Annotation
The family of this 94-nucleotide sequence from Acetivibrio clariflavus is "pan motif". Rfam classes the family as a cis-regulatory element. The base pairs follow the family's consensus structure, which is taken from published work.
RNA sequence: CUGACGGUAUCGAAUGUGAACCGUACGGCCUUUGAAUUAAUUGAACAAUUUAUUGAAAGAACUGCUUUGAUCCGAUUUGGACAAGGACAGAUUG
Numbered sequence: 001c002u003g004a005c006g007g008u009a010u011c012g013a014a015u016g017u018g019a020a021c022c023g024u025a026c027g028g029c030c031u032u033u034g035a036a037u038u039a040a041u042u043g044a045a046c047a048a049u050u051u052a053u054u055g056a057a058a059g060a061a062c063u064g065c066u067u068u069g070a071u072c073c074g075a076u077u078u079g080g081a082c083a084a085g086g087a088c089a090g091a092u093u094g
Stems, first nucleotide, its partner, number of pairs: 001028003004024005010019002062090003065086005071081003